[Rfam]
RNA sequence: AUGAUAAGUAAAUAUAAUUCUUGUAUAUCCUUAGUAAUAUGGUCUAAGAGUUUCUGGCGGAUUGCCUUAAAUAAUCCGACUACAAGAAUAACCACAGCUGAA
Number, nucleotide and partner (000 for none) at each position: 001a000002u000003g000004a000005u000006a000007a000008g000009u000010a000011a000012a000013u000014a000015u000016a000017a000018u088019u087020c086021u085022u084023g083024u082025a081026u000027a000028u000029c000030c048031u047032u046033a045034g044035u000036a000037a000038u000039a000040u000041g000042g000043u000044c034045u033046a032047a031048g030049a000050g000051u000052u000053u000054c000055u000056g000057g000058c078059g077060g076061a075062u074063u073064g072065c000066c000067u000068u000069a000070a000071a000072u064073a063074a062075u061076c060077c059078g058079a000080c000081u025082a024083c023084a022085a021086g020087a019088a018089u000090a000091a000092c000093c000094a000095c000096a000097g000098c000099u000100g000101a000102a000
Shown here is a 102-nucleotide RNA from Gottschalkia acidurici, a member of the family "Purine riboswitch aptamer". The base pairs follow the family's consensus structure, which is taken from published work. Riboswitches are metabolite binding domains within certain messenger RNAs that serve as precision sensors for their corresponding targets. The match comes from Rfam's covariance-model search (74 bits).